[Rfam]
RNA: FMN riboswitch aptamer (RFN element)
Organism: Porphyromonas macacae
RNA sequence: AAGAUUCAUCGAGGGUGGGUGAAAUUCCCUGCCGGUGGUAAAGUCCACAACUCUCCAAGGUUAUCUUUGGGGACUGAUAUGGUGAAAUUCCAUAACCGACGGUCAAAGUCCGGAUGGAAGUUGGAUCAA
Numbered sequence: 001a002a003g004a005u006u007c008a009u010c011g012a013g014g015g016u017g018g019g020u021g022a023a024a025u026u027c028c029c030u031g032c033c034g035g036u037g038g039u040a041a042a043g044u045c046c047a048c049a050a051c052u053c054u055c056c057a058a059g060g061u062u063a064u065c066u067u068u069g070g071g072g073a074c075u076g077a078u079a080u081g082g083u084g085a086a087a088u089u090c091c092a093u094a095a096c097c098g099a100c101g102g103u104c105a106a107a108g109u110c111c112g113g114a115u116g117g118a119a120g121u122u123g124g125a126u127c128a129a
Base pairs, nucleotide, nucleotide: 003127004126005125006124007123008122010120017029018028019027031109032108033098034097035048036047037046038045043096044095052073053072078094079093080092081091082090100112101111102110